A member of the RNA family "c-di-AMP riboswitch aptamer (ydaO/yuaA leader)" from Natronosporangium hydrolyticum, 131 nucleotides long.
RNA sequence: ACGGAGACACCGCCGAGUCGCCGCAAGGCGAGCCGGGGACCCGGUUAACUGGGGUGAAUCCGCGCCAGCGGUAGGGAGCCUUCCGUCCCGAACCCGUCAGCUAACCCGGUAGGCGGCCGAUGGGAAGGAAU
Numbered sequence: 001a002c003g004g005a006g007a008c009a010c011c012g013c014c015g016a017g018u019c020g021c022c023g024c025a026a027g028g029c030g031a032g033c034c035g036g037g038g039a040c041c042c043g044g045u046u047a048a049c050u051g052g053g054g055u056g057a058a059u060c061c062g063c064g065c066c067a068g069c070g071g072u073a074g075g076g077a078g079c080c081u082u083c084c085g086u087c088c089c090g091a092a093c094c095c096g097u098c099a100g101c102u103a104a105c106c107c108g109g110u111a112g113g114c115g116g117c118c119g120a121u122g123g124g125a126a127g128g129a130a131u
Stems, first nucleotide, its partner, number of pairs: 011115004018031003032110006042051002052095003060071004074089004
Pairs were carried over by alignment from the consensus structure.